[Rfam]
Nucleotides: 204
Base pairs, nucleotide, nucleotide: 016110017109018108019107023103024102025101026100030096031095042094043093044092045091046090048088049087050086051085052084053083058077059076062075063074064073065072066071116151117150118149123144125142126141127140128139129138173199174198175197176196177195178194179193180192181191182190183189
Number, partner (000 for none) and nucleotide at each position: 001000u002000a003000c004000a005000a006000a007000u008000u009000g010000u011000u012000u013000g014000a015000a016110g017109g018108g019107a020000u021000g022000a023103u024102g025101g026100g027000u028000g029000a030096a031095c032000g033000a034000u035000g036000a037000a038000a039000a040000a041000c042094u043093a044092a045091u046090c047000a048088u049087a050086u051085u052084u053083u054000u055000g056000u057000a058077g059076a060000a061000a062075u063074a064073g065072c066071a067000u068000u069000u070000u071066u072065g073064c074063u075062g076059u077058u078000u079000a080000a081000c082000c083053a084052a085051a086050a087049u088048a089000g090046g091045a092044u093043u094042a095031g096030u097000c098000u099000g100026c101025c102024c103023a104000u105000u106000u107019u108018u109017u110016c111000a112000u113000a114000u115000a116151a117150g118149u119000g120000u121000c122000u123144g124000c125142g126141a127140a128139a129138u130000a131000u132000u133000u134000g135000c136000a137000g138129a139128u140127u141126u142125u143000a144123u145000u146000g147000u148000g149118a150117u151116u152000u153000g154000a155000a156000a157000a158000a159000a160000u161000a162000u163000u164000g165000u166000g167000a168000c169000g170000a171000c172000u173199a174198g175197u176196c177195c178194u179193u180192c181191c182190g183189a184000a185000g186000u187000c188000a189183u190182c191181g192180g193179g194178g195177g196176g197175a198174u199173u200000u201000u202000u203000u204000g